[Rfam]
RNA sequence: UGGCGGGGGAGCACAAAAACGGGUGAAAUUUGCGGUUUAAUUGGAUUCAACUCCGGGAAUCUUACCAGAAGCGACAGCAAUAUGAAGGUCAGUCUGAAGAACUUACCAAAUGCGCUGAAAGGUGUUGCAUGGCCAUCAUCAGUUAGUAUCUUGAGACGUCCCGUUAAGUCGGGUAACUAACAAGACCCUCUUCUAUAUUUGCUAACAUGCAAUCCGUUGCGAAUGAGCAAAAUAUAGAGACUGCUUUCGAAAGAAAGAGGAAGGUGAGGGCGACGGUAGGUCAGUACGACCCUAAUCCUCUGGGCUACACGCGAAUUGCAAUGGUAAAGGCAAUAGGAUGCCACUCCGAAAGGAGGAGCUAAUCCCCGAAUCUUUACCCUAGUUCGAAUCGAGGUCUGUAACUCGGCCUCGUGAAGGCGGAAUCCGUAGUAACCGCGUUUCAACAAAGCGCGGUGAAUACUUUCCUGCUCAUUGCACACACUGCCCGUCAAACCAAACAAGUUGGAUUUAGAUGAGAUUGUCGUUAUGCGAUAACCGAAUCUAGGUUCAGUGAGUAGGGUUAAGUCGCCACAAGGUAGCCGUAUGGGAACAUGCGGCUGG
Number, nucleotide and partner (000 for none) at each position: 001u478002g477003g475004c474005g473006g000007g472008g000009g470010a469011g468012c467013a466014c000015a000016a462017a461018a000019a000020c426021g425022g424023g423024u422025g319026a000027a317028a316029u315030u314031u313032g312033c311034g310035g308036u307037u000038u000039a000040a000041u056042u055043g054044g053045a000046u000047u000048c000049a000050a000051c000052u000053c044054c043055g042056g041057g000058a000059a000060u000061c000062u000063u000064a000065c303066c302067a301068g300069a299070a000071g297072c000073g000074a000075c117076a116077g115078c114079a000080a111081u000082a000083u000084g000085a000086a000087g107088g106089u105090c000091a103092g102093u101094c000095u000096g000097a000098a000099g000100a000101a093102c092103u091104u000105a089106c088107c087108a000109a000110a000111u080112g000113c000114g078115c077116u076117g075118a000119a000120a000121g292122g291123u000124g290125u289126u288127g287128c000129a000130u286131g285132g281133c280134c279135a277136u276137c275138a000139u000140c000141a000142g181143u180144u179145a178146g177147u176148a000149u156150c155151u000152u000153g000154a000155g150156a149157c000158g000159u000160c173161c172162c171163g170164u000165u000166a000167a000168g000169u000170c163171g162172g161173g160174u000175a000176a147177c146178u145179a144180a143181c142182a000183a000184g000185a000186c000187c269188c268189u267190c266191u000192u238193c237194u236195a235196u234197a233198u232199u000200u000201g000202c227203u226204a000205a000206c225207a224208u223209g220210c219211a218212a217213u000214c000215c000216g000217u212218u211219g210220c209221g000222a000223a208224u207225g206226a203227g202228c000229a000230a000231a000232a198233u197234a196235u195236a194237g193238a192239g000240a000241c260242u259243g000244c257245u256246u255247u254248c253249g000250a000251a000252a000253g248254a247255a246256a245257g244258a000259g242260g241261a000262a000263g000264g000265u000266g190267a189268g188269g187270g000271c000272g000273a000274c000275g137276g136277u135278a000279g134280g133281u132282c000283a000284g000285u131286a130287c127288g126289a125290c124291c122292c121293u000294a000295a000296u000297c071298c000299u069300c068301u067302g066303g065304g000305c000306u000307a036308c035309a000310c034311g033312c032313g031314a030315a029316u028317u027318g000319c025320a000321a000322u000323g378324g377325u376326a375327a374328a373329g372330g000331c000332a000333a000334u000335a000336g365337g364338a000339u000340g359341c358342c000343a000344c355345u354346c353347c352348g000349a000350a000351a000352g347353g346354a345355g344356g000357a000358g341359c340360u000361a000362a000363u000364c337365c336366c000367c000368g000369a000370a000371u000372c329373u328374u327375u326376a325377c324378c323379c000380u000381a000382g000383u000384u000385c416386g000387a000388a000389u000390c411391g410392a409393g408394g407395u406396c405397u000398g000399u000400a000401a000402c000403u000404c000405g396406g395407c394408c393409u392410c391411g390412u000413g000414a000415a000416g385417g000418c000419g000420g000421a000422a024423u023424c022425c021426g020427u000428a000429g000430u000431a000432a454433c453434c452435g451436c450437g449438u448439u447440u000441c000442a000443a000444c000445a000446a000447a439448g438449c437450g436451c435452g434453g433454u432455g000456a000457a000458u000459a000460c000461u017462u016463u000464c000465c000466u013467g012468c011469u010470c009471a000472u007473u005474g004475c003476a000477c002478a001479c000480a000481c574482u000483g571484c000485c000486c567487g566488u000489c564490a000491a561492a560493c559494c558495a000496a000497a555498c554499a000500a000501g551502u550503u549504g548505g547506a546507u545508u544509u543510a542511g541512a540513u539514g000515a000516g536517a000518u534519u533520g532521u531522c530523g529524u528525u000526a000527u000528g524529c523530g522531a521532u520533a519534a518535c000536c516537g000538a000539a513540u512541c511542u510543a509544g508545g507546u506547u505548c504549a503550g502551u501552g000553a000554g498555u497556a000557g000558g494559g493560u492561u491562a000563a000564g489565u000566c487567g486568c000569c000570a000571c483572a000573a000574g481575g000576u599577a598578g597579c596580c595581g594582u593583a592584u591585g590586g000587g000588a000589a000590c585591a584592u583593g582594c581595g580596g579597c578598u577599g576600g000
The record is a 600-nucleotide part of an RNA from Candidatus Parvarchaeum acidiphilum, which matches "Archaeal small subunit ribosomal RNA" in Rfam. The organism belongs to Candidatus Parvarchaeum acidiphilum, within Archaea. On this family, see Yusupov et al., Science 2001: "Crystal structure of the ribosome at 5.5 A resolution". Pairs were carried over by alignment from the consensus structure, which is taken from published work.